[Rfam]
RNA sequence: ACCACAAAGGGUGGAAUAUAAAGGAACUUGAUUCUGAAAUUUGAUGUUAAAUUAUAAUAUGAUGAUGUGU
Numbered sequence: 001a002c003c004a005c006a007a008a009g010g011g012u013g014g015a016a017u018a019u020a021a022a023g024g025a026a027c028u029u030g031a032u033u034c035u036g037a038a039a040u041u042u043g044a045u046g047u048u049a050a051a052u053u054a055u056a057a058u059a060u061g062a063u064g065a066u067g068u069g070u
Base pairs, nucleotide, nucleotide: 003069004068005067006066
Annotation
The family of this 70-nucleotide RNA from Spermophilus dauricus is "Small nucleolar RNA SNORD82". About the family: snoRNA U82 or Z25 is found in both humans and mice. Lineage of the source: Eukaryota > Eutheria > Euarchontoglires > Xerinae > Spermophilus.